[Rfam]
RNA sequence: AUAUCGAAACGGCAAACCCGGGGAAACCCGGCGGCGCAAAGCUACAGGGGCUACCUCCGCCGCGUGCGGACACGCCAGCCAGUUACCGAA
Numbered sequence: 001a002u003a004u005c006g007a008a009a010c011g012g013c014a015a016a017c018c019c020g021g022g023g024a025a026a027c028c029c030g031g032c033g034g035c036g037c038a039a040a041g042c043u044a045c046a047g048g049g050g051c052u053a054c055c056u057c058c059g060c061c062g063c064g065u066g067c068g069g070a071c072a073c074g075c076c077a078g079c080c081a082g083u084u085a086c087c088g089a090a
Stems, first nucleotide, its partner, number of pairs: 012037002018031005040084004047080002049076003056070004